[Rfam]
RNA sequence: CUGAGUUUCUUGCUUUUCUAUAAGAGCAAGUGGUGCGCUACAUCCGCGUAGUUUCCUAGUUCUACACAAAAACUAGGUGGCGAGCAUAUUA
Dot-bracket structure: ........(((((((........))))))).................[[[[...((((((.]]]]......))))))..............
Numbered sequence: 001c002u003g004a005g006u007u008u009c010u011u012g013c014u015u016u017u018c019u020a021u022a023a024g025a026g027c028a029a030g031u032g033g034u035g036c037g038c039u040a041c042a043u044c045c046g047c048g049u050a051g052u053u054u055c056c057u058a059g060u061u062c063u064a065c066a067c068a069a070a071a072a073c074u075a076g077g078u079g080g081c082g083a084g085c086a087u088a089u090u091a
Stems, first nucleotide, its partner, number of pairs: 009030007048065004055077006

A member of the RNA family "wcaG RNA", 91 nucleotides long.
Rfam's curators put it in the seed alignment.
By type it is a cis-regulatory element.